[Rfam]
The family of this 370-nucleotide RNA from Galactobacter caseinivorans is "Bacterial RNase P class A". Pairs were carried over by alignment from the consensus structure, which is taken from published work. The family's RNA type in Rfam is ribozyme. It scores 311 bits against the family's covariance model.
RNA sequence: UGGGUCGACUGGACGAUCGCGUGCCGCGCAAGCGGCCCGAGGAAAGUCCGGGCUCCACAGAACAGGGUGGUGGGUAACGCCCACUCGGGGUAACCCGCAGGCUAGUGCCACAGAAAUGAGACCGCCUGCCUCAGGGCAGGUCAGGGUGAAACGGUGGUGUAAGAGACCACCAGCGUCCCGGGUGACCGGGACGGCUAGGUAAACCCCACCUGGAGCAAGGCCAGACAGGCGCUGAUUGAGGGCUGUUCGCCCGAGGCGCUGGGUAGGCCGCUUGAGGCCAUCGGCAACGGUGGCCCUAGAUAGAUGAUCGUCUCUCGCGCCGGGUGACCGCGCGCGAAGCCAGAACCCGGCUCACAGGUCGGCCCAUCCC
Dot-bracket structure: ((((((((((((((((((.((.(((((....))))).)).....[[.[[[[[((((...[[[[.((((((((((.....)))))(((((....)))).)((...(((((............(((((((((....)))))))..)).......((((((.......)))))).(((((((((....)))))))).)..)))..)))))))))))))...((((.....((((((......((((.]]]]))))..)))))).....))))......((((((((....))))))))..........))))))).................................]]]]]]]..).))))))))))....
Numbered sequence: 001u002g003g004g005u006c007g008a009c010u011g012g013a014c015g016a017u018c019g020c021g022u023g024c025c026g027c028g029c030a031a032g033c034g035g036c037c038c039g040a041g042g043a044a045a046g047u048c049c050g051g052g053c054u055c056c057a058c059a060g061a062a063c064a065g066g067g068u069g070g071u072g073g074g075u076a077a078c079g080c081c082c083a084c085u086c087g088g089g090g091u092a093a094c095c096c097g098c099a100g101g102c103u104a105g106u107g108c109c110a111c112a113g114a115a116a117u118g119a120g121a122c123c124g125c126c127u128g129c130c131u132c133a134g135g136g137c138a139g140g141u142c143a144g145g146g147u148g149a150a151a152c153g154g155u156g157g158u159g160u161a162a163g164a165g166a167c168c169a170c171c172a173g174c175g176u177c178c179c180g181g182g183u184g185a186c187c188g189g190g191a192c193g194g195c196u197a198g199g200u201a202a203a204c205c206c207c208a209c210c211u212g213g214a215g216c217a218a219g220g221c222c223a224g225a226c227a228g229g230c231g232c233u234g235a236u237u238g239a240g241g242g243c244u245g246u247u248c249g250c251c252c253g254a255g256g257c258g259c260u261g262g263g264u265a266g267g268c269c270g271c272u273u274g275a276g277g278c279c280a281u282c283g284g285c286a287a288c289g290g291u292g293g294c295c296c297u298a299g300a301u302a303g304a305u306g307a308u309c310g311u312c313u314c315u316c317g318c319g320c321c322g323g324g325u326g327a328c329c330g331c332g333c334g335c336g337a338a339g340c341c342a343g344a345a346c347c348c349g350g351c352u353c354a355c356a357g358g359u360c361g362g363c364c365c366a367u368c369c370c
Stems, first nucleotide, its partner, number of pairs: 001366010011355001012312007020039002023036005045352002048350005053215004060248004065211005070084005085099001086097004100206002105204002107200003122145002124141007153171006173195001174193008219269004228260006240252004276295008